[Rfam]
RNA sequence: CUCACACCCAUGUGUGUAGGACUCCAAAGGAUCACCAUUAAAUUUGACACAGAUCUCUAGAAAAGUUAUCACAUAGUUGUAAAACUUGACUUUUCUAGAUAUCUGUAUCAAAUUUAAUGGUGAUCCUUUGGGGUCCUACACAUAUAGGUGUGGG
Numbered sequence: 001c002u003c004a005c006a007c008c009c010a011u012g013u014g015u016g017u018a019g020g021a022c023u024c025c026a027a028a029g030g031a032u033c034a035c036c037a038u039u040a041a042a043u044u045u046g047a048c049a050c051a052g053a054u055c056u057c058u059a060g061a062a063a064a065g066u067u068a069u070c071a072c073a074u075a076g077u078u079g080u081a082a083a084a085c086u087u088g089a090c091u092u093u094u095c096u097a098g099a100u101a102u103c104u105g106u107a108u109c110a111a112a113u114u115u116a117a118u119g120g121u122g123a124u125c126c127u128u129u130g131g132g133g134u135c136c137u138a139c140a141c142a143u144a145u146a147g148g149u150g151u152g153g154g
Base pairs, nucleotide, nucleotide: 002153003152004151005150006149007148008147010145011144012143013142015140016139017138018137019136020135021134022133023132024131025130026129027128028127030125031124032123034121035120036119037118038117039116040115041114042113043112044111045110046109047108049106050105051104052103053102054101056099057098058097059096060095061094062093063092064091065090066089067088068087069082071080072079073078
Annotation:
A member of the RNA family "MIR8565 microRNA precursor family" from Amborella trichopoda, 154 nucleotides long. The base pairs follow the family's consensus structure, which was predicted with RNAalifold. It scores 149 bits against the family's covariance model. Taxonomically the source falls in Amborella (Eukaryota, Euphyllophyta, Magnoliopsida, Amborellales).